[Rfam]
RNA sequence: AUGCAGACCGCUCAGCGAGGCUGGGCCUGCUGUGGUCUUGUCCUUUCCUGUAGUGUCUGCUAAAGAGAUUGGGGUGGUUUGAGGCCUUGCUGUGGCUCUCCCUGGCAAGGUUAUAGAAACCUCAGACAAUU
Number, nucleotide and partner (000 for none) at each position: 001a000002u000003g060004c059005a058006g057007a056008c055009c000010g000011c000012u000013c000014a000015g000016c000017g000018a044019g043020g042021c000022u000023g038024g037025g036026c035027c034028u000029g000030c000031u000032g000033u000034g027035g026036u025037c024038u023039u000040g000041u000042c020043c019044u018045u000046u000047c000048c000049u000050g000051u000052a000053g000054u000055g008056u007057c006058u005059g004060c003061u000062a000063a000064a000065g000066a000067g000068a000069u000070u124071g123072g122073g121074g120075u000076g000077g000078u000079u000080u000081g000082a000083g000084g000085c110086c109087u108088u107089g106090c105091u000092g103093u000094g101095g000096c000097u000098c000099u000100c000101c094102c000103u092104g000105g090106c089107a088108a087109g086110g085111u000112u000113a000114u000115a000116g000117a000118a000119a000120c074121c073122u072123c071124a070125g000126a000127c000128a000129a000130u000131u000
Small nucleolar RNA SNORA9: a 131-nucleotide RNA sequence from Albula glossodonta. The family has 36 seed sequences and 1,202 matches in Rfam 15.1. Rfam's curators write: ACA9 is a member of the H/ACA class of snoRNA that guide the sites of modification of uridines to pseudouridines. Taxonomically the source falls in Albula (Eukaryota, Bilateria, Actinopteri, Neopterygii). The family's consensus secondary structure was predicted with PFOLD. Its Rfam clan is "SNORA9 clan".